Rfam assigns this 195-nucleotide RNA sequence from Vanilla planifolia to the family "MIR159 microRNA precursor family".
Rfam links the family to the GO terms RISC complex and miRNA-mediated post-transcriptional gene silencing.
The family's consensus secondary structure was predicted with WAR.
Lineage of the source: Eukaryota > Embryophyta > Spermatophyta > Magnoliopsida > Vanilla.

RNA sequence: UUUUAUAAAAGAGAGCUUCCUUCAGUCCACUCAUGGGUGGCAAAGAGGGGCUGAGUUAGCUUCGGCUCAUUCAUUCAAAUGCUAAGAGAAAAUCAGUAGCGAGAGAUGCUUAGCAGAUGAGUGAAUGAUUCGGGAGAUAGUUUCGUCCCUAUGCAAUCUUUGCUUGGACUGAAGGGAGCUCCUUCUUGCUUUUCA
Numbered sequence: 001u002u003u004u005a006u007a008a009a010a011g012a013g014a015g016c017u018u019c020c021u022u023c024a025g026u027c028c029a030c031u032c033a034u035g036g037g038u039g040g041c042a043a044a045g046a047g048g049g050g051c052u053g054a055g056u057u058a059g060c061u062u063c064g065g066c067u068c069a070u071u072c073a074u075u076c077a078a079a080u081g082c083u084a085a086g087a088g089a090a091a092a093u094c095a096g097u098a099g100c101g102a103g104a105g106a107u108g109c110u111u112a113g114c115a116g117a118u119g120a121g122u123g124a125a126u127g128a129u130u131c132g133g134g135a136g137a138u139a140g141u142u143u144c145g146u147c148c149c150u151a152u153g154c155a156a157u158c159u160u161u162g163c164u165u166g167g168a169c170u171g172a173a174g175g176g177a178g179c180u181c182c183u184u185c186u187u188g189c190u191u192u193u194c195a
Stems, first nucleotide, its partner, number of pairs: 013181008023171007036158001060136002063132002068127004076119001